[Rfam]
Singlet oxygen resistance RNA X: an 86-nucleotide RNA sequence from Pseudooceanicola algae. SorX (RSs2461)like SorY is a singlet oxygen induced sRNA that counteracts oxidative stress by targeting mRNA for a transporter in Rhodobacter. It also has an impact on resistance against organic hydroperoxides. The family has 8 seed sequences and 528 matches in Rfam 15.1. Rfam links the family to the GO term response to photooxidative stress. On this family, see Peng et al., RNA Biol 2016: "Regulation of a polyamine transporter by the conserved 3' UTR-derived sRNA SorX confers resistance to singlet oxygen and organic hydroperoxides in Rhodobacter sphaeroides".
RNA sequence: AGCACUCGACGGUGAUGCUGCCUAGCGGCGCGUCACCUUCAUACCUCCCUGUUGGACUUGGCCGGACCUUGUGUCCGGCCUUUUUU
Dot-bracket structure: .......((.((((((((...........)))))))).))...................((((((((.....))))))))......
Numbered sequence: 001a002g003c004a005c006u007c008g009a010c011g012g013u014g015a016u017g018c019u020g021c022c023u024a025g026c027g028g029c030g031c032g033u034c035a036c037c038u039u040c041a042u043a044c045c046u047c048c049c050u051g052u053u054g055g056a057c058u059u060g061g062c063c064g065g066a067c068c069u070u071g072u073g074u075c076c077g078g079c080c081u082u083u084u085u086u
Stems, first nucleotide, its partner, number of pairs: 008040002011037008060080008